RNA sequence: AGCACCUUUAAUUUAGUCCAGAGAGGCUGAGAAGGAUACGACCUAAUGUGCCGGUUAUUUUUAACCGCGACACAAUCAUGAUUUGGGAUUAGUAUACCCUCUUGCCUUUUGGCAAGAGGGUUUUUUACU
Numbered sequence: 001a002g003c004a005c006c007u008u009u010a011a012u013u014u015a016g017u018c019c020a021g022a023g024a025g026g027c028u029g030a031g032a033a034g035g036a037u038a039c040g041a042c043c044u045a046a047u048g049u050g051c052c053g054g055u056u057a058u059u060u061u062u063a064a065c066c067g068c069g070a071c072a073c074a075a076u077c078a079u080g081a082u083u084u085g086g087g088a089u090u091a092g093u094a095u096a097c098c099c100u101c102u103u104g105c106c107u108u109u110u111g112g113c114a115a116g117a118g119g120g121u122u123u124u125u126u127a128c129u
Stems, first nucleotide, its partner, number of pairs: 005035005013030006044075001047072003052067006094123001096121011